The family of this 117-nucleotide RNA from Arabis alpina is "U5 spliceosomal RNA". By type it is a spliceosomal small nuclear RNA. Pairs were carried over by alignment from the consensus structure, which is taken from published work. It scores 83 bits against the family's covariance model.
[Rfam]
RNA sequence: AGCUGUGCGAUAAGCACAUGUCGAACUAUUCUUUCGCCUUUUACUAAAGAAUAUCGUGUGCUUGUCGUAUUAAACGGCAUACGCUUAUUUUUGGAGGGUUGUCUCUCAUCGAGAUCA
Numbered sequence: 001a002g003c004u005g006u007g008c009g010a011u012a013a014g015c016a017c018a019u020g021u022c023g024a025a026c027u028a029u030u031c032u033u034u035c036g037c038c039u040u041u042u043a044c045u046a047a048a049g050a051a052u053a054u055c056g057u058g059u060g061c062u063u064g065u066c067g068u069a070u071u072a073a074a075c076g077g078c079a080u081a082c083g084c085u086u087a088u089u090u091u092u093g094g095a096g097g098g099u100u101g102u103c104u105c106u107c108a109u110c111g112a113g114a115u116c117a
Stems, first nucleotide, its partner, number of pairs: 003077004008067011027053008099117001101115004